About this RNA:
Rfam assigns this 361-nucleotide part of an RNA from Jiangella asiatica to the family "Bacterial large subunit ribosomal RNA". Lineage of the source: Bacteria > Bacillati > Actinomycetota > Actinomycetes > Jiangella. On this family, see Yusupov et al., Science 2001: "Crystal structure of the ribosome at 5.5 A resolution".
RNA sequence: CGAGUGAACCGUGGUUAAGGAACUCGGCAAAAUGCCCCCGUAACUUCGGGAGAAGGGGGGCCGGAUACGUGAACACCACACGGUGGGAGCGUUGAUGGCCGCAGAGACCAGGGGAAAGCGACUGUUUAUUAAAAACACAGGUCCGUGCGAAGUCGCAAGACGAUGUAUACGGACUGACGCCUGCCCGGUGCUGGAACGUUAAGGGGACGAGUCAACCCUUCGGGGUGAAGCUCAGAACUUAAGCGCCAGUAAACGGCGGUGGUAACUAUAACCAUCCUAAGGUAGCGAAAUUCCUUGUCGGGUAAGUUCCGACCUGCACGAAUGGCGUAACGACUUUCCCACUGUCUCAACCACGGACUCG
Number, nucleotide and partner (000 for none) at each position: 001c361002g360003a359004g358005u000006g000007a000008a000009c356010c355011g354012u353013g352014g351015u350016u349017a000018a347019g346020g345021a000022a000023c000024u000025c000026g000027g000028c000029a000030a000031a000032a000033u000034g000035c059036c058037c057038c056039c055040g000041u000042a000043a000044c049045u000046u000047c000048g000049g044050g000051a000052g000053a000054a000055g039056g038057g037058g036059g035060g099061c098062c097063g096064g000065a000066u000067a000068c000069g000070u000071g000072a000073a000074c085075a084076c083077c082078a000079c000080a000081c000082g077083g076084u075085g074086g000087g000088a000089g000090c000091g000092u000093u000094g000095a000096u063097g062098g061099c060100c104101g000102c000103a000104g100105a000106g000107a000108c000109c000110a000111g000112g340113g339114g338115a337116a336117a335118g334119c332120g331121a000122c000123u137124g136125u135126u000127u000128a000129u000130u000131a000132a000133a000134a000135a125136c124137a123138c000139a000140g175141g174142u173143c172144c171145g170146u169147g168148c165149g000150a000151a000152g161153u160154c159155g000156c000157a000158a000159g154160a153161c152162g000163a000164u000165g148166u000167a000168u147169a146170c145171g144172g143173a142174c141175u140176g000177a000178c327179g326180c325181c324182u000183g257184c256185c255186c000187g000188g254189u253190g250191c249192u248193g247194g246195a000196a000197c245198g244199u243200u000201a000202a000203g239204g238205g000206g000207a000208c000209g233210a232211g231212u230213c000214a000215a226216c225217c224218c223219u000220u000221c000222g000223g218224g217225g216226u215227g000228a000229a000230g212231c211232u210233c209234a000235g000236a000237a000238c204239u203240u000241a000242a000243g199244c198245g197246c194247c193248a192249g191250u190251a000252a000253a189254c188255g185256g184257c183258g276259g275260u274261g273262g272263u271264a000265a000266c000267u000268a000269u000270a000271a263272c262273c261274a260275u259276c258277c281278u000279a000280a000281g277282g000283u000284a000285g000286c000287g314288a000289a000290a000291u000292u000293c000294c000295u000296u000297g313298u312299c311300g310301g309302g308303u000304a000305a000306g000307u000308u302309c301310c300311g299312a298313c297314c287315u000316g000317c000318a000319c000320g000321a000322a000323u000324g181325g180326c179327g178328u000329a000330a000331c120332g119333a000334c118335u117336u116337u115338c114339c113340c112341a000342c000343u000344g000345u020346c019347u018348c000349a016350a015351c014352c013353a012354c011355g010356g009357a000358c004359u003360c002361g001